[Rfam]
RNA: Bacterial RNase P class A
Organism: Flavobacterium supellecticarium
RNA sequence: GCCGCAGACCGCCUUAUCGUCGUUCCGAUUCUUCGGAAGGGAGGAAAGUCCGGACACCACAGAGUAGCAUAGCGGGUAACACCCGUCAGUUCCGAAUUUAUCGGGAUUAGGACAAGUGCAACAGAAAGUAUGUACAGGUAAUGCUGUAGUGAAACCAGGUAAACUCUAUGCGGUGAAAUGCCAUGUAUAUCAACAUUUAAGGGCUGCUCGUCCGUUGUUGAGGGGUAGGCAGAUAGAUCCCGACAGUAAUGUCGGGGCUAGAUAAAUGAUAAGGGUUCCGAUGUAUCGGAAUACAGAAUCCGGCUUACAGGUCUGCUUUUUUU
Numbered sequence: 001g002c003c004g005c006a007g008a009c010c011g012c013c014u015u016a017u018c019g020u021c022g023u024u025c026c027g028a029u030u031c032u033u034c035g036g037a038a039g040g041g042a043g044g045a046a047a048g049u050c051c052g053g054a055c056a057c058c059a060c061a062g063a064g065u066a067g068c069a070u071a072g073c074g075g076g077u078a079a080c081a082c083c084c085g086u087c088a089g090u091u092c093c094g095a096a097u098u099u100a101u102c103g104g105g106a107u108u109a110g111g112a113c114a115a116g117u118g119c120a121a122c123a124g125a126a127a128g129u130a131u132g133u134a135c136a137g138g139u140a141a142u143g144c145u146g147u148a149g150u151g152a153a154a155c156c157a158g159g160u161a162a163a164c165u166c167u168a169u170g171c172g173g174u175g176a177a178a179u180g181c182c183a184u185g186u187a188u189a190u191c192a193a194c195a196u197u198u199a200a201g202g203g204c205u206g207c208u209c210g211u212c213c214g215u216u217g218u219u220g221a222g223g224g225g226u227a228g229g230c231a232g233a234u235a236g237a238u239c240c241c242g243a244c245a246g247u248a249a250u251g252u253c254g255g256g257g258c259u260a261g262a263u264a265a266a267u268g269a270u271a272a273g274g275g276u277u278c279c280g281a282u283g284u285a286u287c288g289g290a291a292u293a294c295a296g297a298a299u300c301c302g303g304c305u306u307a308c309a310g311g312u313c314u315g316c317u318u319u320u321u322u323u
Stems, first nucleotide, its partner, number of pairs: 001319001004316007011308001012274007020041002023038006046306003050303005055175004062209004067171005072086005087110001088108008111166002116164002118160002133148005179231004190221005201213004238257008